[Rfam]
RNA: TPP riboswitch aptamer (THI element)
Organism: Bombilactobacillus mellifer
RNA sequence: GUAAUACACGAGGGGUGCCUUACGGCUGAGAAAGACCCUUUGAACCUGUUAAGUUAAGACUUGCGGAGGGACGUGUACGUGUUUGUAU
Numbered sequence: 001g002u003a004a005u006a007c008a009c010g011a012g013g014g015g016u017g018c019c020u021u022a023c024g025g026c027u028g029a030g031a032a033a034g035a036c037c038c039u040u041u042g043a044a045c046c047u048g049u050u051a052a053g054u055u056a057a058g059a060c061u062u063g064c065g066g067a068g069g070g071a072c073g074u075g076u077a078c079g080u081g082u083u084u085g086u087a088u
Base pairs, nucleotide, nucleotide: 006076007075008074009073010072011039012038013037014036016033017026018025019024045069046068047067050063051062052061053060